[Rfam]
RNA sequence: CAUACUACGGUGCAACGAGGGCGAAAGUAAACGAUGACCCUAAAGGAACUCUACGUUAAAAUGCAUAUCAAAAUGCAAAAUUGAUCCUGACUUGGGGUUUUGGCUCCGGGGUGAUUUUUU
Numbered sequence: 001c002a003u004a005c006u007a008c009g010g011u012g013c014a015a016c017g018a019g020g021g022c023g024a025a026a027g028u029a030a031a032c033g034a035u036g037a038c039c040c041u042a043a044a045g046g047a048a049c050u051c052u053a054c055g056u057u058a059a060a061a062u063g064c065a066u067a068u069c070a071a072a073a074u075g076c077a078a079a080a081u082u083g084a085u086c087c088u089g090a091c092u093u094g095g096g097g098u099u100u101u102g103g104c105u106c107c108g109g110g111g112u113g114a115u116u117u118u119u120u
Stems, first nucleotide, its partner, number of pairs: 001036003008033002012028002039046002055069001057067002090112004095107003
A member of the RNA family "Enterobacteria greA leader" from Yersinia enterocolitica, 120 nucleotides long. The base pairs follow the family's consensus structure, which is taken from published work. Rfam's curators put it in the seed alignment. The organism belongs to Yersinia enterocolitica subsp. enterocolitica, within Bacteria. Gene Ontology term of the family: regulation of gene expression. It is annotated as a cis-regulatory leader.